The family of this 109-nucleotide sequence from Capsicum annuum is "Small nucleolar RNA snoR100".
The literature on the family includes a 2002 paper in Curr Biol by Marker et al., "Experimental RNomics: identification of 140 candidates for small non-messenger RNAs in the plant Arabidopsis thaliana".
Gene Ontology terms of the family: nucleolus and RNA processing.
NCBI's taxonomy places the organism under Eukaryota, Viridiplantae, asterids, lamiids, Capsicum.
Rfam classes the family as an H/ACA-box small nucleolar RNA.
RNA sequence: GAAUGAAGGUAGCAUGGUUAUGUGUACAGAAAUUGAAUUAAUUUUGAGUCAACAUGUCUGCUACCUUUGAUUUCGCUAUGAUUUGGUGGCCUGGUUUAGACUCACAUUC
Numbered sequence: 001g002a003a004u005g006a007a008g009g010u011a012g013c014a015u016g017g018u019u020a021u022g023u024g025u026a027c028a029g030a031a032a033u034u035g036a037a038u039u040a041a042u043u044u045u046g047a048g049u050c051a052a053c054a055u056g057u058c059u060g061c062u063a064c065c066u067u068u069g070a071u072u073u074c075g076c077u078a079u080g081a082u083u084u085g086g087u088g089g090c091c092u093g094g095u096u097u098a099g100a101c102u103c104a105c106a107u108u109c
Stems, first nucleotide, its partner, number of pairs: 012025004046092001048090003056082003060076002